[Rfam]
Rfam assigns this 72-nucleotide RNA from Danio rerio to the family "mir-24 microRNA precursor family". Rfam describes the family as follows. This family represents the microRNA (miRNA) mir-24 family. miRNAs are transcribed as ~70nt precursors (modelled here) and subsequently processed by the Dicer enzyme to give a ~22nt product. In this case the mature sequence comes from the 3' arm of the precursor. The extents of the hairpin precursors are not generally known and are estimated based on hairpin prediction. The family's consensus secondary structure was predicted with RNAalifold. Gene Ontology terms of the family: RISC complex and miRNA-mediated post-transcriptional gene silencing. Lineage of the source: Eukaryota > Opisthokonta > Metazoa > Eumetazoa > Danio. The sequence is in the family's curated seed alignment.

RNA sequence: CCCACUUGUGCCUGCUAAACUGGUAUCAGUAUGUUGAUUUAGUGCUGGCUCAGUUCAGCAGGAACAGGUGUG
Numbered sequence: 001c002c003c004a005c006u007u008g009u010g011c012c013u014g015c016u017a018a019a020c021u022g023g024u025a026u027c028a029g030u031a032u033g034u035u036g037a038u039u040u041a042g043u044g045c046u047g048g049c050u051c052a053g054u055u056c057a058g059c060a061g062g063a064a065c066a067g068g069u070g071u072g
Base pairs, nucleotide, nucleotide: 003070004069005068006067008065009064011062012061013060015058016057018055019054020053021052022051023050026048027047028046029045030044
Dot-bracket structure: ..((((.((.(((.((.((((((..(((((.............))))).)))))).)).))).)).))))..